A member of the RNA family "mir-203 microRNA precursor family" from Dissostichus mawsoni, 80 nucleotides long. Lineage of the source: Eukaryota > Deuterostomia > Craniata > Euacanthomorphacea > Dissostichus. On this family, see Lim et al., Science 2003: "Vertebrate microRNA genes".

RNA sequence: GUCUGACUGGUCAAGUGGUCCUAAACAUUUCACAAUUUUUGUAAAGAACUGUUGAACUGUUGAGAACCACUUAAUCAGAG
Numbered sequence: 001g002u003c004u005g006a007c008u009g010g011u012c013a014a015g016u017g018g019u020c021c022u023a024a025a026c027a028u029u030u031c032a033c034a035a036u037u038u039u040u041g042u043a044a045a046g047a048a049c050u051g052u053u054g055a056a057c058u059g060u061u062g063a064g065a066a067c068c069a070c071u072u073a074a075u076c077a078g079a080g
Base pairs, nucleotide, nucleotide: 014071015070016069017068018067019066021064022063024061025060026059027058029056030055031054032053